[Rfam]
RNA sequence: CUUGCACCUCCAACUCUUUGGGCCCUUCACUGAUAAUUGAAAGGCUCAAGUCACAAUGUGCAGAUAGAAAUAAAGCUUGUCGCCUUCCCUGACUAGAACAGUGUCGGUGGAAGUGAAUUGAAGCAGUAACAGUC
Dot-bracket structure: .((((((.(..........(((((.((((........)))).)))))........).))))))........(..((((.....((((((((((.........))))).))))).......))))..).......
Numbered sequence: 001c002u003u004g005c006a007c008c009u010c011c012a013a014c015u016c017u018u019u020g021g022g023c024c025c026u027u028c029a030c031u032g033a034u035a036a037u038u039g040a041a042a043g044g045c046u047c048a049a050g051u052c053a054c055a056a057u058g059u060g061c062a063g064a065u066a067g068a069a070a071u072a073a074a075g076c077u078u079g080u081c082g083c084c085u086u087c088c089c090u091g092a093c094u095a096g097a098a099c100a101g102u103g104u105c106g107g108u109g110g111a112a113g114u115g116a117a118u119u120g121a122a123g124c125a126g127u128a129a130c131a132g133u134c
Stems, first nucleotide, its partner, number of pairs: 002063006009056001020047005026041004072127001075124004084113005089107005